[Rfam]
RNA: mir-395 microRNA precursor family
Organism: Gossypium raimondii
RNA sequence: CUGUUCCCUGGAGUUCCCCUGAUCACUUCAUCGGGGAUAUUUUACAACCCUAGACACAGGGAAUUUGAUCCUACUGAAGUGUUUGGGGGAACUCUGGGAGAUAG
Numbered sequence: 001c002u003g004u005u006c007c008c009u010g011g012a013g014u015u016c017c018c019c020u021g022a023u024c025a026c027u028u029c030a031u032c033g034g035g036g037a038u039a040u041u042u043u044a045c046a047a048c049c050c051u052a053g054a055c056a057c058a059g060g061g062a063a064u065u066u067g068a069u070c071c072u073a074c075u076g077a078a079g080u081g082u083u084u085g086g087g088g089g090a091a092c093u094c095u096g097g098g099a100g101a102u103a104g
Base pairs, nucleotide, nucleotide: 005100007098008097009096011094012093013092014091015090016089017088018087019086020085022084024081025080026079027078028077029076030075033072034071035070